RNA sequence: GGCCACCCUCGGGGGGCUUUACCAUCGGCAAAGCAUUGCUUUGUCGCUUAAGCAAACGGAAGACAGAAA
Number, nucleotide and partner (000 for none) at each position: 001g018002g017003c016004c015005a000006c014007c013008c012009u000010c000011g000012g008013g007014g006015g004016g003017c002018u001019u000020u000021a000022c000023c000024a000025u000026c046027g045028g044029c043030a042031a041032a040033g039034c038035a000036u000037u000038g034039c033040u032041u031042u030043g029044u028045c027046g026047c000048u000049u000050a000051a000052g000053c000054a000055a000056a000057c000058g000059g000060a000061a000062g000063a000064c000065a000066g000067a000068a000069a000
The record is a 69-nucleotide RNA sequence, which matches "L2-Alphaproteobacteria ribosomal protein leader" in Rfam. Rfam's curators put it in the seed alignment.